[Rfam]
RNA sequence: GUUGCGUUAAUGAAGACUACACAGAAAACCCUUUUGAGGAUUUGUGUGGAUCUGAUAUUUAGCAAA
Numbered sequence: 001g002u003u004g005c006g007u008u009a010a011u012g013a014a015g016a017c018u019a020c021a022c023a024g025a026a027a028a029c030c031c032u033u034u035u036g037a038g039g040a041u042u043u044g045u046g047u048g049g050a051u052c053u054g055a056u057a058u059u060u061a062g063c064a065a066a
Base pairs, nucleotide, nucleotide: 002065003064004063005062015052016051017049018048019047020046021045022044023043024042030039031038032037
Shown here is a 66-nucleotide RNA sequence from Phyllostomus discolor, a member of the family "Selenocysteine insertion sequence 1". It scores 39 bits against the family's covariance model. By type it is a cis-regulatory element.